[Rfam]
RNA sequence: UCUUCAGUGAUGAACAACGCAGUGACUUUUGUUCUUCUGAAUUUUCUGAAGCCAGUCUUUGUGUAUUGAGAGA
Numbered sequence: 001u002c003u004u005c006a007g008u009g010a011u012g013a014a015c016a017a018c019g020c021a022g023u024g025a026c027u028u029u030u031g032u033u034c035u036u037c038u039g040a041a042u043u044u045u046c047u048g049a050a051g052c053c054a055g056u057c058u059u060u061g062u063g064u065a066u067u068g069a070g071a072g073a
Base pairs, nucleotide, nucleotide: 001073002072003071005070

The record is a 73-nucleotide RNA sequence from Nothobranchius furzeri, which matches "Small nucleolar RNA SNORD59" in Rfam. Rfam links the family to the GO terms RNA processing and nucleolus. The base pairs follow the family's consensus structure, which was predicted with ILM. The family has 24 seed sequences and 1,355 matches in Rfam 15.1. By type it is a C/D-box small nucleolar RNA.